[Rfam]
RNA sequence: UGUGCCCACCACGACUGGCGCAGGUGGGCAACCACCAGGGAGUGGCCGGGAGCGCACGGCGCACCCGGGCGAGACCGGCAUCGACCGCCUGGGUGCCCUCA
Dot-bracket structure: ..(.((..((((..(([[[[...((((....))))..))..))))..)).)..........................(((((...]]]]..))))).....